[Rfam]
This 189-nucleotide sequence from Acetohalobium arabaticum belongs to the Rfam family "Group II catalytic intron D1-D4-3". The family has 406 seed sequences and 4,274 matches in Rfam 15.1. The pairing is the family consensus, mapped onto this sequence. On this family, see Bonen and Vogel, Trends Genet 2001: "The ins and outs of group II introns". Taxonomically the source falls in Acetohalobium arabaticum (Bacteria, Bacillati, Bacillota, Clostridia). From the family's description: Group II introns are found in rRNA, tRNA and mRNA of organelles in fungi, plants and protists, and also in mRNA in bacteria.
RNA sequence: UCUAUCGAGAGAUAGAAUCUGAAGAAUUUGAGACGUGCUGUCAGUCCGAAACAAAAGUGAACCAGAGGUGGCAUUUAACUGUGGUGAUCCGCCUAAAUAACGGAGAAAUUCAUAGCUGGUUUGAAUUCUAUGUGUUCAUGCUAGACAGUUAGGUGUGUUUAGGGUUGGAAUGACAGUAAAGUGAUGUAA
Numbered sequence: 001u002c003u004a005u006c007g008a009g010a011g012a013u014a015g016a017a018u019c020u021g022a023a024g025a026a027u028u029u030g031a032g033a034c035g036u037g038c039u040g041u042c043a044g045u046c047c048g049a050a051a052c053a054a055a056a057g058u059g060a061a062c063c064a065g066a067g068g069u070g071g072c073a074u075u076u077a078a079c080u081g082u083g084g085u086g087a088u089c090c091g092c093c094u095a096a097a098u099a100a101c102g103g104a105g106a107a108a109u110u111c112a113u114a115g116c117u118g119g120u121u122u123g124a125a126u127u128c129u130a131u132g133u134g135u136u137c138a139u140g141c142u143a144g145a146c147a148g149u150u151a152g153g154u155g156u157g158u159u160u161a162g163g164g165u166u167g168g169a170a171u172g173a174c175a176g177u178a179a180a181g182u183g184a185u186g187u188a189a
Base pairs, nucleotide, nucleotide: 001016002015003014004013005012006011027188029186030185033182034181038176039175040174041173042172044171045169046168047167048166049165062164063163066160071156072155073154075152076151077150078149079148080147081146083110084109085108088104089103090102091101